[Rfam]
RNA: Aggregatibacter sRNA 22
RNA sequence: CUGCGGUGAAAAAAUUCCAAAGGAAUUUUCAACGUUGCGUAGCAACGGGGACGAAGCCCCGAACAAUCCUAUUAAGGAUUGUGAGUAAAAAUUGCUGA
Numbered sequence: 001c002u003g004c005g006g007u008g009a010a011a012a013a014a015u016u017c018c019a020a021a022g023g024a025a026u027u028u029u030c031a032a033c034g035u036u037g038c039g040u041a042g043c044a045a046c047g048g049g050g051a052c053g054a055a056g057c058c059c060c061g062a063a064c065a066a067u068c069c070u071a072u073u074a075a076g077g078a079u080u081g082u083g084a085g086u087a088a089a090a091a092u093u094g095c096u097g098a
Base pairs, nucleotide, nucleotide: 011029012028013027014026015025016024017023033047034046035045036044037043038042048060049059050058052056063082064081065080066079067078068077069076070075085095086094087093088092